[Rfam]
RNA: T-box leader
Organism: Paenibacillus sp. CAA11
RNA sequence: UCAAAGACGAUGAACGGGAAGAGUAGGUAGGCAUAGCCCUUACAGAGAGCGGAAUUGUAGCGCUGGGAAAUUCCGUAGGAUGCAGCUCUCCGAAGUCGCCCGGAAGUCGCCCGUUUGAACCCGUAAUAUCAUCGGUUAGAACGGGCCGGCAUGCAGCCGUUAUCCUGCAAUUGAGUGUCGCUUGGCCCCUUACGCGUUCUUUAUCGCGAUUGGUUUACAGGAUCCUUGCGAAACAAAGGUGGUACCGCGAAAGAUAGAGCCUUUCGUCCUUUGA
Numbered sequence: 001u002c003a004a005a006g007a008c009g010a011u012g013a014a015c016g017g018g019a020a021g022a023g024u025a026g027g028u029a030g031g032c033a034u035a036g037c038c039c040u041u042a043c044a045g046a047g048a049g050c051g052g053a054a055u056u057g058u059a060g061c062g063c064u065g066g067g068a069a070a071u072u073c074c075g076u077a078g079g080a081u082g083c084a085g086c087u088c089u090c091c092g093a094a095g096u097c098g099c100c101c102g103g104a105a106g107u108c109g110c111c112c113g114u115u116u117g118a119a120c121c122c123g124u125a126a127u128a129u130c131a132u133c134g135g136u137u138a139g140a141a142c143g144g145g146c147c148g149g150c151a152u153g154c155a156g157c158c159g160u161u162a163u164c165c166u167g168c169a170a171u172u173g174a175g176u177g178u179c180g181c182u183u184g185g186c187c188c189c190u191u192a193c194g195c196g197u198u199c200u201u202u203a204u205c206g207c208g209a210u211u212g213g214u215u216u217a218c219a220g221g222a223u224c225c226u227u228g229c230g231a232a233a234c235a236a237a238g239g240u241g242g243u244a245c246c247g248c249g250a251a252a253g254a255u256a257g258a259g260c261c262u263u264u265c266g267u268c269c270u271u272u273g274a
Stems, first nucleotide, its partner, number of pairs: 007107002015102004026091002030087002038079003049076008110145007147159003178231004184225001236271004247267007